RNA sequence: AGGCAGCCUCCUUUCUUCUGUUUAGAUAAUUGGGAAGGGCGGUGUUAUUCUGCUCGUAAAUUGAAGUUGGGCUCUUCAGACUUGUUGAUUUUUUACUUGAUACUGGUCUAGUAAGCCUAACUACAUA
Numbered sequence: 001a002g003g004c005a006g007c008c009u010c011c012u013u014u015c016u017u018c019u020g021u022u023u024a025g026a027u028a029a030u031u032g033g034g035a036a037g038g039g040c041g042g043u044g045u046u047a048u049u050c051u052g053c054u055c056g057u058a059a060a061u062u063g064a065a066g067u068u069g070g071g072c073u074c075u076u077c078a079g080a081c082u083u084g085u086u087g088a089u090u091u092u093u094u095a096c097u098u099g100a101u102a103c104u105g106g107u108c109u110a111g112u113a114a115g116c117c118u119a120a121c122u123a124c125a126u127a
Stems, first nucleotide, its partner, number of pairs: 002046004007042002009039008066121003071116003078109005084103002089095001

Shown here is a 127-nucleotide sequence from Olea europaea, a member of the family "Small nucleolar RNA snoR77". Lineage of the source: Eukaryota > Magnoliopsida > asterids > Oleaceae > Olea europaea. The family's consensus secondary structure was predicted with WAR. Rfam links the family to the GO terms nucleolus and RNA processing. Rfam 15.1 lists 649 matches to the family in 221 species. By type it is an H/ACA-box small nucleolar RNA.